[Rfam]
RNA sequence: AAAUCGUCCCAUAAGUUUUGCAACUGUAGCAGUUUUGGCCCCCAAGACCAAUUUUUGGUAAAAAAGAAUAACACGUGGCACCUCACUUAGGGUGCCACGCCAGCGUAGACCGAGUCAAAAUUGGCAGUGGGGGCCAAAACUGUCACGAACGCAAAACUUAAGGGACAAUUU
Numbered sequence: 001a002a003a004u005c006g007u008c009c010c011a012u013a014a015g016u017u018u019u020g021c022a023a024c025u026g027u028a029g030c031a032g033u034u035u036u037g038g039c040c041c042c043c044a045a046g047a048c049c050a051a052u053u054u055u056u057g058g059u060a061a062a063a064a065a066g067a068a069u070a071a072c073a074c075g076u077g078g079c080a081c082c083u084c085a086c087u088u089a090g091g092g093u094g095c096c097a098c099g100c101c102a103g104c105g106u107a108g109a110c111c112g113a114g115u116c117a118a119a120a121u122u123g124g125c126a127g128u129g130g131g132g133g134c135c136a137a138a139a140c141u142g143u144c145a146c147g148a149a150c151g152c153a154a155a156a157c158u159u160a161a162g163g164g165a166c167a168a169u170u171u
Stems, first nucleotide, its partner, number of pairs: 001171002004168001006166003012160010025147003029143016074099001076097007

The record is a 171-nucleotide sequence from Medicago truncatula, which matches "MIR2619 microRNA precursor family" in Rfam. It scores 123 bits against the family's covariance model. Gene Ontology terms of the family: miRNA-mediated post-transcriptional gene silencing and RISC complex. The base pairs follow the family's consensus structure, which was predicted with RNAalifold.